[Rfam]
RNA sequence: UAUUAUCAAAAGUAGAGGGACGAAGAGCCGUUCGUGCUAGCACGAAAAAGGCUUUAUGUAUUUUCGACCCGCCAAACAUGAGAAAGGAGCGAUUUACAAAGUAAAUCAGCGGAAUUCGAAUGUUUGGAGAAUUGAGGGAGCAGCAAAGCUGCGGAGCAAUUCGUAGGUAUUA
Numbered sequence: 001u002a003u004u005a006u007c008a009a010a011a012g013u014a015g016a017g018g019g020a021c022g023a024a025g026a027g028c029c030g031u032u033c034g035u036g037c038u039a040g041c042a043c044g045a046a047a048a049a050g051g052c053u054u055u056a057u058g059u060a061u062u063u064u065c066g067a068c069c070c071g072c073c074a075a076a077c078a079u080g081a082g083a084a085a086g087g088a089g090c091g092a093u094u095u096a097c098a099a100a101g102u103a104a105a106u107c108a109g110c111g112g113a114a115u116u117c118g119a120a121u122g123u124u125u126g127g128a129g130a131a132u133u134g135a136g137g138g139a140g141c142a143g144c145a146a147a148g149c150u151g152c153g154g155a156g157c158a159a160u161u162c163g164u165a166g167g168u169a170u171u172a
Stems, first nucleotide, its partner, number of pairs: 001172002004169004012068002017062002020059003024055006031048002033044004072127008082117003089110002091107007129162006140152004
A member of the RNA family "Clostridiales-1 RNA", 172 nucleotides long. By type it is a small RNA.